[Rfam]
RNA sequence: GCAGUUGUGGCCGAGUGGUUAAGGCGAUGGACUGGAAAUCCAUUGGGGUCUCCGCACUGGUUCGAAUCCUGUCGACUGCG
Numbered sequence: 001g002c003a004g005u006u007g008u009g010g011c012c013g014a015g016u017g018g019u020u021a022a023g024g025c026g027a028u029g030g031a032c033u034g035g036a037a038a039u040c041c042a043u044u045g046g047g048g049u050c051u052c053c054g055c056a057c058u059g060g061u062u063c064g065a066a067u068c069c070u071g072u073c074g075a076c077u078g079c080g
Base pairs, nucleotide, nucleotide: 001079002078003077004076005075006074007073010025011024012023027043028042029041030040031039056072057071059069060068
The family of this 80-nucleotide RNA from Ixodes scapularis is "tRNA".
Rfam classes the family as a transfer RNA.
The source organism's lineage runs through Eukaryota, Panarthropoda, Acari, Ixodinae and Ixodes.
Its Rfam clan is "tRNA clan".
The base pairs follow the family's consensus structure, which is taken from published work.